Rfam assigns this 69-nucleotide RNA from Peromyscus maniculatus to the family "Small nucleolar RNA SNORD27". By type it is a C/D-box small nucleolar RNA. The organism belongs to Peromyscus maniculatus, within Eukaryota. On this family, see Tycowski et al., Nature 1996: "A mammalian gene with introns instead of exons generating stable RNA products".
RNA sequence: ACUUAAUGAUGAGUGUAAAUGACAAGCAUAUGGCUGAAUUGCAGUGAUGUCAUCUUUCUACUGAAAAGU
Dot-bracket structure: ((((............................................................)).))